Background
The family of this 181-nucleotide RNA sequence from Nocardioides sp. CF8 is "Actinobacteria sRNA Ms_IGR-5". Lineage of the source: Bacteria > Actinomycetota > Propionibacteriales > Nocardioidaceae > Nocardioides. Pairs were carried over by alignment from the consensus structure.
[Rfam]
RNA sequence: ACACGGAAAGGAGGUGGUCCGAGAAAUGAAGUCUUUUCGGAUGAGUGAGGUGGCUGCCCGCUAGGCAGCACCAGUCGUCGACGUACUGCCGGCGAAUCCAACGCAGUCACCCGACCCGCAGGCCCCGGAAUUCAUCCCCCGGAUCGCCCCCCAUGAGGGGCAGGCCUGCGGGUCGCUGCCA
Numbered sequence: 001a002c003a004c005g006g007a008a009a010g011g012a013g014g015u016g017g018u019c020c021g022a023g024a025a026a027u028g029a030a031g032u033c034u035u036u037u038c039g040g041a042u043g044a045g046u047g048a049g050g051u052g053g054c055u056g057c058c059c060g061c062u063a064g065g066c067a068g069c070a071c072c073a074g075u076c077g078u079c080g081a082c083g084u085a086c087u088g089c090c091g092g093c094g095a096a097u098c099c100a101a102c103g104c105a106g107u108c109a110c111c112c113g114a115c116c117c118g119c120a121g122g123c124c125c126c127g128g129a130a131u132u133c134a135u136c137c138c139c140c141g142g143a144u145c146g147c148c149c150c151c152c153a154u155g156a157g158g159g160g161c162a163g164g165c166c167u168g169c170g171g172g173u174c175g176c177u178g179c180c181a
Stems, first nucleotide, its partner, number of pairs: 013058006059094004064090003068086001070084002112175013125142004